[Rfam]
Nucleotides: 524
Base pairs, nucleotide, nucleotide: 001520002519003518004517005516006515007514008513009512010511011509012459013458014457015456016455017454018453020105021104022103023102024101025100027098028097111506112505114504115503116502117501118500119285120284121283122282126390127389128388129387131281132280133279134278135277136150137149138148139147140146151165152163153162154161155160166276167275171274172273173270174269188215189214190211191210192209193208194207195206196205197204198203223241224240225239226238227237228236243265244263245262246261247260248259249258250257251256289416290415291414292413298407299406300405301404381395382394383393384392385391423443424442425441426440428437429436430435
Number, partner (000 for none) and nucleotide at each position: 001520u002519g003518a004517g005516a006515g007514g008513g009512c010511c011509g012459g013458g014457u015456g016455g017454u018453c019000g020105c021104g022103g023102c024101g025100c026000a027098c028097g029000g030000a031000a032000c033000g034000c035000g036000u037000g038000g039000c040000c041000a042000a043000g044000u045000u046000c047000c048000c049000g050000c051000c052000a053000u054000c055000g056000c057000c058000g059000c060000u061000c062000g063000c064000g065000g066000c067000g068000a069000g070000a071000c072000a073000g074000g075000g076000g077000g078000g079000a080000g081000c082000c083000a084000a085000c086000g087000g088000c089000c090000g091000g092000u093000a094000c095000g096000c097028c098027g099000a100025g101024u102023g103022u104021c105020g106000a107000g108000g109000a110000a111506a112505g113000u114504c115503c116502g117501g118500a119285c120284u121283c122282c123000a124000c125000a126390g127389a128388g129387c130000a131281c132280g133279g134278u135277g136150g137149u138148u139147g140146c141000u142000a143000a144000c145000a146140g147139c148138a149137a150136c151165c152163c153162g154161g155160g156000g157000u158000g159000a160155c161154c162153c163152g164000c165151g166276g167275g168000c169000a170000a171274g172273u173270g174269c175000a176000a177000c178000a179000g180000a181000g182000a183000g184000u185000a186000g187000a188215c189214c190211g191210c192209c193208a194207g195206c196205c197204a198203c199000u200000g201000c202000g203198g204197u205196g206195g207194u208193u209192g210191g211190u212000a213000a214189g215188g216000g217000u218000g219000a220000a221000a222000g223241g224240g225239u226238g227237c228236g229000g230000u231000a232000a233000g234000a235000g236228c237227g238226c239225a240224c241223c242000a243265g244263c245262g246261c247260g248259g249258c250257g251256a252000g253000u254000g255000a256251u257250c258249g259248u260247c261246g262245c263244g264000g265243c266000u267000a268000g269174g270173u271000a272000a273172a274171c275167c276166c277135c278134a279133c280132c281131g282122g283121g284120a285119g286000c287000a288000a289416g290415g291414u292413c293000a294000a295000g296000u297000g298407g299406c300405u301404c302000c303000a304000c305000c306000g307000c308000c309000g310000g311000u312000c313000g314000g315000u316000g317000a318000c319000a320000a321000c322000c323000g324000c325000g326000g327000c328000c329000u330000u331000c332000g333000g334000g335000c336000c337000g338000g339000g340000g341000c342000g343000g344000u345000c346000g347000c348000g349000g350000a351000c352000g353000a354000a355000c356000a357000a358000a359000c360000g361000g362000g363000g364000g365000u366000g367000g368000g369000g370000c371000u372000g373000u374000g375000c376000c377000c378000u379000c380000a381395u382394g383393g384392g385391c386000u387129g388128c389127u390126c391385g392384u393383c394382c395381g396000c397000c398000g399000a400000c401000g402000a403000a404301g405300g406299g407298c408000a409000g410000g411000u412000a413292g414291a415290c416289c417000g418000c419000u420000u421000g422000a423443g424442g425441c426440g427000c428437c429436c430435a431000g432000c433000g434000a435430u436429g437428g438000a439000a440426c441425g442424c443423c444000c445000a446000g447000a448000u449000g450000g451000a452000u453018g454017g455016c456015c457014a458013c459012c460000u461000c462000g463000c464000c465000c466000c467000c468000g469000a470000g471000c472000g473000c474000c475000c476000u477000g478000g479000g480000c481000g482000c483000g484000c485000g486000g487000g488000g489000g490000u491000a492000g493000g494000a495000c496000a497000g498000a499000a500118u501117c502116c503115g504114g505112c506111u507000c508000a509011c510000a511010g512009g513008c514007c515006c516005u517004c518003u519002c520001a521000a522000c523000c524000g

Shown here is a 524-nucleotide RNA sequence from Corynebacterium heidelbergense, a member of the family "Bacterial RNase P class A".
By type it is a ribozyme.
NCBI's taxonomy places the organism under Bacteria, Bacillati, Actinomycetota, Corynebacteriaceae, Corynebacterium.
A search with the family's covariance model found it, with a score of 229 bits.